[Rfam]
RNA sequence: ACAAUGAUACUCCCGUCUUUCUUCGGAAAGGCGGCUCGGAGCGAUCCUCGGAGGGGUGAGAGUCCCAUGA
Numbered sequence: 001a002c003a004a005u006g007a008u009a010c011u012c013c014c015g016u017c018u019u020u021c022u023u024c025g026g027a028a029a030g031g032c033g034g035c036u037c038g039g040a041g042c043g044a045u046c047c048u049c050g051g052a053g054g055g056g057u058g059a060g061a062g063u064c065c066c067a068u069g070a
Base pairs, nucleotide, nucleotide: 013034014033015032016031017030018029019028020027021026035053036052037051039049040048041047054066055065056064
RNA: pemK RNA